Description: A member of the RNA family "MIR319 microRNA precursor family" from Quercus lobata, 84 nucleotides long. It scores 55 bits against the family's covariance model. The family's consensus secondary structure was predicted with RNAalifold. NCBI's taxonomy places the organism under Eukaryota, Embryophyta, Mesangiospermae, Pentapetalae, Quercus. Its family is annotated with RISC complex and miRNA-mediated post-transcriptional gene silencing in the Gene Ontology.
[Rfam]
RNA sequence: AAGAAGUAGGAGCUCCCUUCAGUCCAAAACAGCCAGCCAGAAGUUCAGCAGAAUGUUUUGGGCUGAAAGGAACCCCCAUUUCUA
Numbered sequence: 001a002a003g004a005a006g007u008a009g010g011a012g013c014u015c016c017c018u019u020c021a022g023u024c025c026a027a028a029a030c031a032g033c034c035a036g037c038c039a040g041a042a043g044u045u046c047a048g049c050a051g052a053a054u055g056u057u058u059u060g061g062g063c064u065g066a067a068a069g070g071a072a073c074c075c076c077c078a079u080u081u082c083u084a
Stems, first nucleotide, its partner, number of pairs: 007078001009076002012073001014071003018067001021064002024061005